[Rfam]
RNA sequence: UUCUCGUGCUAAGUAGUAGUGCCGCAGGUAAAAGACCCGAGAAAGUUUUUGACUUCUUUAGUUAUUAGAAUUCUUAUUACCUGCUCUCUACUCCUUGAUACGGUAA
Numbered sequence: 001u002u003c004u005c006g007u008g009c010u011a012a013g014u015a016g017u018a019g020u021g022c023c024g025c026a027g028g029u030a031a032a033a034g035a036c037c038c039g040a041g042a043a044a045g046u047u048u049u050u051g052a053c054u055u056c057u058u059u060a061g062u063u064a065u066u067a068g069a070a071u072u073c074u075u076a077u078u079a080c081c082u083g084c085u086c087u088c089u090a091c092u093c094c095u096u097g098a099u100a101c102g103g104u105a106a
Base pairs, nucleotide, nucleotide: 001106002105004103005102006101007100010097011096012095013094015092016091017090018089019088024084025083026082027081028080029079030078